The record is a 100-nucleotide RNA sequence from Lentisphaera araneosa, which matches "Bacterial small signal recognition particle RNA" in Rfam.
Lineage of the source: Bacteria > Pseudomonadati > Lentisphaerota > Lentisphaera > Lentisphaera araneosa.
The family's RNA type in Rfam is non-coding RNA gene.

RNA sequence: GUCCGGGCCCCCUGCGGCGUCUGCGUUCCGAACCUGGUCAGGCGGGGAACCGAGCAGCCAUAAGGAACAAUGUCGGGUGCAGGCGGUUAACCCGGGCUGU
Numbered sequence: 001g002u003c004c005g006g007g008c009c010c011c012c013u014g015c016g017g018c019g020u021c022u023g024c025g026u027u028c029c030g031a032a033c034c035u036g037g038u039c040a041g042g043c044g045g046g047g048a049a050c051c052g053a054g055c056a057g058c059c060a061u062a063a064g065g066a067a068c069a070a071u072g073u074c075g076g077g078u079g080c081a082g083g084c085g086g087u088u089a090a091c092c093c094g095g096g097c098u099g100u
Base pairs, nucleotide, nucleotide: 003095004094005093006092007091009086010085011083012082013081014080015077018075019074021072025068026067027066028065029064035060036059037058038057043052044051045050
Dot-bracket structure: ..(((((.(((((((..((.(...(((((.....((((....(((....)))....))))...)))))...).)).)..)))).))....))))).....